[Rfam]
The record is a 514-nucleotide part of an RNA from Donacobius atricapilla, which matches "Eukaryotic large subunit ribosomal RNA" in Rfam. It scores 1982 bits against the family's covariance model. The family's consensus secondary structure is taken from published work.
RNA sequence: CCCUCCAAAGUUCCCCUCAGGAGAGCUGGCACUCGGCAAUGGGCAGUUUUACCUGGUAAAGCAAAUGAUUAGAGUUCUUGAGGACAAAACGAUCUCAACCUAUUCUCAAACUUUCAAUGGGUAAGGGGGCCAGCUCGCUGGCAUGGAGCUGCAUCGUGGAAUGAGAGUGCUCAGCAGGCCACUUUUGUUAAGCAGAACUGGCGCUGCAGGAUCAACCAAAUGCCAGGUUAAAGCACCCAAUGCAGACACUUAUCAGAGCCCAGAAGAGGUGUUGGUUGAUCUAGACAGUGGGACGGUGGCCAUGGAAGUCAGAAUCCACUAAGGAGUGUGUAACAACUCACCUGCUGAAUCGACUAGCCCUGAAAAUGGAUGGUGCUGGAGCGUCGGGCCCAUACGCGGCCAUCACUGGCACUGCAAUGCCCACGGGGGCUAGGCCACAAUGAGUAGGAGGGCCACUGCGGUGUGCCUCGAAGCCUGGGGCAUGGGUCCAGGUGGAGCUGCCACAGGUGCAGAU
Numbered sequence: 001c002c003c004u005c006c007a008a009a010g011u012u013c014c015c016c017u018c019a020g021g022a023g024a025g026c027u028g029g030c031a032c033u034c035g036g037c038a039a040u041g042g043g044c045a046g047u048u049u050u051a052c053c054u055g056g057u058a059a060a061g062c063a064a065a066u067g068a069u070u071a072g073a074g075u076u077c078u079u080g081a082g083g084a085c086a087a088a089a090c091g092a093u094c095u096c097a098a099c100c101u102a103u104u105c106u107c108a109a110a111c112u113u114u115c116a117a118u119g120g121g122u123a124a125g126g127g128g129g130c131c132a133g134c135u136c137g138c139u140g141g142c143a144u145g146g147a148g149c150u151g152c153a154u155c156g157u158g159g160a161a162u163g164a165g166a167g168u169g170c171u172c173a174g175c176a177g178g179c180c181a182c183u184u185u186u187g188u189u190a191a192g193c194a195g196a197a198c199u200g201g202c203g204c205u206g207c208a209g210g211a212u213c214a215a216c217c218a219a220a221u222g223c224c225a226g227g228u229u230a231a232a233g234c235a236c237c238c239a240a241u242g243c244a245g246a247c248a249c250u251u252a253u254c255a256g257a258g259c260c261c262a263g264a265a266g267a268g269g270u271g272u273u274g275g276u277u278g279a280u281c282u283a284g285a286c287a288g289u290g291g292g293a294c295g296g297u298g299g300c301c302a303u304g305g306a307a308g309u310c311a312g313a314a315u316c317c318a319c320u321a322a323g324g325a326g327u328g329u330g331u332a333a334c335a336a337c338u339c340a341c342c343u344g345c346u347g348a349a350u351c352g353a354c355u356a357g358c359c360c361u362g363a364a365a366a367u368g369g370a371u372g373g374u375g376c377u378g379g380a381g382c383g384u385c386g387g388g389c390c391c392a393u394a395c396g397c398g399g400c401c402a403u404c405a406c407u408g409g410c411a412c413u414g415c416a417a418u419g420c421c422c423a424c425g426g427g428g429g430c431u432a433g434g435c436c437a438c439a440a441u442g443a444g445u446a447g448g449a450g451g452g453c454c455a456c457u458g459c460g461g462u463g464u465g466c467c468u469c470g471a472a473g474c475c476u477g478g479g480g481c482a483u484g485g486g487u488c489c490a491g492g493u494g495g496a497g498c499u500g501c502c503a504c505a506g507g508u509g510c511a512g513a514u
Base pairs, nucleotide, nucleotide: 001452002451003450004449005448006447011024012023014021015020028171029170030169031168032167033166047126048125049124050123051122052121053120054119059114060112061111066108067107068106071103073101074100078098079097080096081095082094083093085091128154131151132150133149134148135147136146178202179201180200181199183197184196185195186194187193209216222400223399224398228394233389234388241387243386247383249381267361268360269359271358272357273356274355275354276353277352278351279350280349288345289344290343291342292341295317296316300312319323324339328337329336401442402441403440408436409435410434454509456506457505458504460502461501462500463499465498466497473493474492479488480487481486